[Rfam]
c-di-AMP riboswitch aptamer (ydaO/yuaA leader): a 163-nucleotide RNA from Plectonema radiosum. The match comes from Rfam's covariance-model search (67 bits). Lineage of the source: Bacteria > Cyanobacteriota > Oscillatoriophycideae > Microcoleaceae > Plectonema radiosum.
RNA sequence: ACAAAGAAUCAGCCUAAUCCGGCUUAUAUUUUGCAAGUUGGAACGGAGGAACCACCAUUAUAGGGGCUUAUUUUACUUAGAAGUGUCAAUAUCUUCUUGGUAAGAGGGAUACCUCUCAAUCCUAGCCCGUCAGCUAACUUCGUAGGCAUCGAGGGGAUUGAUG
Numbered sequence: 001a002c003a004a005a006g007a008a009u010c011a012g013c014c015u016a017a018u019c020c021g022g023c024u025u026a027u028a029u030u031u032u033g034c035a036a037g038u039u040g041g042a043a044c045g046g047a048g049g050a051a052c053c054a055c056c057a058u059u060a061u062a063g064g065g066g067c068u069u070a071u072u073u074u075a076c077u078u079a080g081a082a083g084u085g086u087c088a089a090u091a092u093c094u095u096c097u098u099g100g101u102a103a104g105a106g107g108g109a110u111a112c113c114u115c116u117c118a119a120u121c122c123u124a125g126c127c128c129g130u131c132a133g134c135u136a137a138c139u140u141c142g143u144a145g146g147c148a149u150c151g152a153g154g155g156g157a158u159u160g161a162u163g
Stems, first nucleotide, its partner, number of pairs: 012147003018042008043143006053063001064128003072104006107122004